RNA: Small nucleolar RNA Z107/R87
RNA sequence: GAUUACAAUGAUGACUGGGUAAAAUUCAAGCUCAAUAGACCGGAAUGCUGGGCUUUCUCUUACAAGAAAUUUUUGCAUGUCGAAUACCCGUUGAACUAAGUGAUC
Numbered sequence: 001g002a003u004u005a006c007a008a009u010g011a012u013g014a015c016u017g018g019g020u021a022a023a024a025u026u027c028a029a030g031c032u033c034a035a036u037a038g039a040c041c042g043g044a045a046u047g048c049u050g051g052g053c054u055u056u057c058u059c060u061u062a063c064a065a066g067a068a069a070u071u072u073u074u075g076c077a078u079g080u081c082g083a084a085u086a087c088c089c090g091u092u093g094a095a096c097u098a099a100g101u102g103a104u105c
Stems, first nucleotide, its partner, number of pairs: 001105006